[Rfam]
RNA sequence: UGGACAGAUUAUUGUAUUCGACUGUAUUCACGACGUGAAACAGGGGAUUACACUGUUUUUAAACGGAAAGCGAAUCAAUUAAUAUUUAUUUA
Numbered sequence: 001u002g003g004a005c006a007g008a009u010u011a012u013u014g015u016a017u018u019c020g021a022c023u024g025u026a027u028u029c030a031c032g033a034c035g036u037g038a039a040a041c042a043g044g045g046g047a048u049u050a051c052a053c054u055g056u057u058u059u060u061a062a063a064c065g066g067a068a069a070g071c072g073a074a075u076c077a078a079u080u081a082a083u084a085u086u087u088a089u090u091u092a
Stems, first nucleotide, its partner, number of pairs: 011089002014085002017082002020080002023077002026075004031070001034065003037059007
RNA: MIR6152 microRNA precursor family